RNA sequence: UCCAUCGUGAGGUGGAAUCUGAAGAAAGCCAGAUGAGCAAAAUACUGCACUGAUGAACAAGAAGCGGCAACAAGGCCGAAAGUGACUGGAUGAGGUUGCCAAGCAAACUAAAAGUCCAAUACUAAUCGAAUUCACAACGGUAAAGCUGACGGUGACAUGGUAUGAAAGCUGAUAGC
Numbered sequence: 001u002c003c004a005u006c007g008u009g010a011g012g013u014g015g016a017a018u019c020u021g022a023a024g025a026a027a028g029c030c031a032g033a034u035g036a037g038c039a040a041a042a043u044a045c046u047g048c049a050c051u052g053a054u055g056a057a058c059a060a061g062a063a064g065c066g067g068c069a070a071c072a073a074g075g076c077c078g079a080a081a082g083u084g085a086c087u088g089g090a091u092g093a094g095g096u097u098g099c100c101a102a103g104c105a106a107a108c109u110a111a112a113a114g115u116c117c118a119a120u121a122c123u124a125a126u127c128g129a130a131u132u133c134a135c136a137a138c139g140g141u142a143a144a145g146c147u148g149a150c151g152g153u154g155a156c157a158u159g160g161u162a163u164g165a166a167a168g169c170u171g172a173u174a175g176c
Stems, first nucleotide, its partner, number of pairs: 001016006028176002031173001037169002042163006048154005065148004075141003082135004088117004094109004
Rfam assigns this 176-nucleotide sequence from Lacticaseibacillus paracasei to the family "Group II catalytic intron D1-D4-3". Pairs were carried over by alignment from the consensus structure. NCBI's taxonomy places the organism under Bacteria, Bacillati, Bacillota, Lactobacillaceae, Lacticaseibacillus paracasei. For this family Rfam cites "Group II introns: structure and catalytic versatility of large natural ribozymes" (Lehmann and Schmidt, Crit Rev Biochem Mol Biol, 2003). Group II introns are found in rRNA, tRNA and mRNA of organelles in fungi, plants and protists, and also in mRNA in bacteria.